[Rfam]
RNA sequence: GCGGGCGCCAUUCGGGCCCGCCGUGAGGGCGUCGACGAUCGGCGCUUCUUCAUGCCCAUGUUGCUUUGUUCUUCGAGGAUAUGGCUAUGAGGA
Numbered sequence: 001g002c003g004g005g006c007g008c009c010a011u012u013c014g015g016g017c018c019c020g021c022c023g024u025g026a027g028g029g030c031g032u033c034g035a036c037g038a039u040c041g042g043c044g045c046u047u048c049u050u051c052a053u054g055c056c057c058a059u060g061u062u063g064c065u066u067u068g069u070u071c072u073u074c075g076a077g078g079a080u081a082u083g084g085c086u087a088u089g090a091g092g093a
Stems, first nucleotide, its partner, number of pairs: 001021006008015002027047009049091006056084007064077003
A member of the RNA family "Repression of heat shock gene expression (ROSE) element" from Dokdonella sp., 93 nucleotides long. The match comes from Rfam's covariance-model search (58 bits). Rfam links the family to the GO terms response to temperature stimulus and regulation of translation. From the family's description: This family represents a 5' UTR cis-regulatory element found in heat shock mRNAs and is known as the ROSE (repression of heat shock gene expression) element. The ROSE element is a negative regulator of heat shock gene expression. The secondary structure is thought to be regulated by temperature. This regulation blocks access to the ribosome binding site under normal conditions. During heat shock however, the structure changes freeing the ribosome binding site and allowing expression to occur.